[Rfam]
RNA sequence: GACGCGGGCCGUGACUGGCGCAUCGCAGGUGGGAUCGACCACCGGGGAGCGGCCCCGUCGACUCGACGCCUGCCGCGCGCCUGGGCUCCCGUC
Numbered sequence: 001g002a003c004g005c006g007g008g009c010c011g012u013g014a015c016u017g018g019c020g021c022a023u024c025g026c027a028g029g030u031g032g033g034a035u036c037g038a039c040c041a042c043c044g045g046g047g048a049g050c051g052g053c054c055c056c057g058u059c060g061a062c063u064c065g066a067c068g069c070c071u072g073c074c075g076c077g078c079g080c081c082u083g084g085g086c087u088c089c090c091g092u093c
Stems, first nucleotide, its partner, number of pairs: 006055007015046002017081005029042004072086003

Annotation: Rfam assigns this 93-nucleotide RNA from Modestobacter caceresii to the family "ZMP/ZTP riboswitch aptamer (pfl RNA motif)". Taxonomically the source falls in Modestobacter (Bacteria, Actinomycetota, Actinomycetes, Geodermatophilales).